[Rfam]
RNA sequence: GUGCCUGUGGGAUGAAAAUGUCCCUGACACGUACCAUUUAUUUACUUUGUCAGUUGAUAUUUUGUUUUCAGCUGAUCAUGAAGGAUGGGAAAUUU
Numbered sequence: 001g002u003g004c005c006u007g008u009g010g011g012a013u014g015a016a017a018a019u020g021u022c023c024c025u026g027a028c029a030c031g032u033a034c035c036a037u038u039u040a041u042u043u044a045c046u047u048u049g050u051c052a053g054u055u056g057a058u059a060u061u062u063u064g065u066u067u068u069c070a071g072c073u074g075a076u077c078a079u080g081a082a083g084g085a086u087g088g089g090a091a092a093u094u095u
Base pairs, nucleotide, nucleotide: 034088035087036086037085038084049076050075051074052073053072054071055070056069
Shown here is a 95-nucleotide sequence from Zea mays, a member of the family "Small nucleolar RNA snoR99". The literature on the family includes a 2002 paper in Curr Biol by Marker et al., "Experimental RNomics: identification of 140 candidates for small non-messenger RNAs in the plant Arabidopsis thaliana". Its family is annotated with nucleolus and RNA processing in the Gene Ontology. By type it is an H/ACA-box small nucleolar RNA. Lineage of the source: Eukaryota > Magnoliopsida > Mesangiospermae > Petrosaviidae > Zea. Rfam 15.1 lists 733 matches to the family in 222 species.